[Rfam]
RNA sequence: UGCUGUGAUGAUGUAAUUUGCGUCUUACCCGGCGCUCAGCGACAGUUGCCUGCUGUCAGCGUGCUGGUGCUGGGGAGCUGAAGACUCCUUCGCUCUGAGCA
Numbered sequence: 001u002g003c004u005g006u007g008a009u010g011a012u013g014u015a016a017u018u019u020g021c022g023u024c025u026u027a028c029c030c031g032g033c034g035c036u037c038a039g040c041g042a043c044a045g046u047u048g049c050c051u052g053c054u055g056u057c058a059g060c061g062u063g064c065u066g067g068u069g070c071u072g073g074g075g076a077g078c079u080g081a082a083g084a085c086u087c088c089u090u091c092g093c094u095c096u097g098a099g100c101a
Base pairs, nucleotide, nucleotide: 001101002100003099021083023081024080030072031071032070033069034068039064040063041057042056043055044054045053

This 101-nucleotide sequence from Todus mexicanus belongs to the Rfam family "Small nucleolar RNA SNORD16". It scores 80 bits against the family's covariance model. Pairs were carried over by alignment from the consensus structure, which was predicted with PFOLD. Rfam 15.1 lists 1,321 matches to the family in 655 species. A reference for the family is Fragapane et al. (1993), "A novel small nucleolar RNA (U16) is encoded inside a ribosomal protein intron and originates by processing of the pre-mRNA", EMBO J. The family's RNA type in Rfam is C/D-box small nucleolar RNA. Its family is annotated with RNA processing and nucleolus in the Gene Ontology.